[Rfam]
RNA sequence: CUUGGCGUUGUCGUAGCGGUCGGGGUCGUCCCCGAACUCUGCGAGCACCCGGGCGCCGAGCACAACACCGAGUCCUGGCAGG
Numbered sequence: 001c002u003u004g005g006c007g008u009u010g011u012c013g014u015a016g017c018g019g020u021c022g023g024g025g026u027c028g029u030c031c032c033c034g035a036a037c038u039c040u041g042c043g044a045g046c047a048c049c050c051g052g053g054c055g056c057c058g059a060g061c062a063c064a065a066c067a068c069c070g071a072g073u074c075c076u077g078g079c080a081g082g
Stems, first nucleotide, its partner, number of pairs: 008044004013039001018038003023033003055079003059076002062073002

Actinobacteria sRNA Ms_AS-4: an 82-nucleotide sequence from Candidatus Neomicrothrix parvicella. It scores 95 bits against the family's covariance model. Taxonomically the source falls in Candidatus Neomicrothrix parvicella (Bacteria, Actinomycetota, Acidimicrobiia, Microthrixaceae). The pairing is the family consensus, mapped onto this sequence.